[Rfam]
RNA sequence: AAUGCAUGACUCUUCAAUCUCAGGACUUGUAGAAUUAAUGGAAUGCCCCCCUAUUGUCGAGUUCUGCAUU
Numbered sequence: 001a002a003u004g005c006a007u008g009a010c011u012c013u014u015c016a017a018u019c020u021c022a023g024g025a026c027u028u029g030u031a032g033a034a035u036u037a038a039u040g041g042a043a044u045g046c047c048c049c050c051c052u053a054u055u056g057u058c059g060a061g062u063u064c065u066g067c068a069u070u
Base pairs, nucleotide, nucleotide: 002069003068004067005066006065010061011060012059015056016055017054022052023051024050029046030045031044
This 70-nucleotide sequence from Orycteropus afer belongs to the Rfam family "mir-676 microRNA precursor family". The match comes from Rfam's covariance-model search (66 bits). Gene Ontology terms of the family: miRNA-mediated post-transcriptional gene silencing and RISC complex. The literature on the family includes a 2006 paper in Nucleic Acids Res by Mineno et al., "The expression profile of microRNAs in mouse embryos". The family's consensus secondary structure was predicted with RNAalifold. NCBI's taxonomy places the organism under Eukaryota, Sarcopterygii, Dipnotetrapodomorpha, Amniota, Orycteropus afer.